[Rfam]
About this RNA:
The record is a 125-nucleotide sequence from Xiphorhynchus elegans, which matches "Small nucleolar RNA SNORA32" in Rfam. By type it is an H/ACA-box small nucleolar RNA. NCBI's taxonomy places the organism under Eukaryota, Craniata, Amniota, Coelurosauria, Xiphorhynchus. The base pairs follow the family's consensus structure, which was predicted with RNAfold. ACA32 is a member of the H/ACA class of snoRNA that guide the sites of modification of uridines to pseudouridines. Rfam 15.1 lists 615 matches to the family in 234 species.

RNA sequence: UGGUCAUUACCAAGGCUGCUGGGAUGUUCCUGUUUCUGGUGAGCUGUGGACAUGACCAUAAAGCAAGUCCAUCAGACUUUUGUAUUUUGCCACAUGAUGUGGCACCAAGUCUGCUGGAAUAAGGC
Numbered sequence: 001u002g003g004u005c006a007u008u009a010c011c012a013a014g015g016c017u018g019c020u021g022g023g024a025u026g027u028u029c030c031u032g033u034u035u036c037u038g039g040u041g042a043g044c045u046g047u048g049g050a051c052a053u054g055a056c057c058a059u060a061a062a063g064c065a066a067g068u069c070c071a072u073c074a075g076a077c078u079u080u081u082g083u084a085u086u087u088u089g090c091c092a093c094a095u096g097a098u099g100u101g102g103c104a105c106c107a108a109g110u111c112u113g114c115u116g117g118a119a120u121a122a123g124g125c
Stems, first nucleotide, its partner, number of pairs: 003056005010049003026044004068118004075111004088104003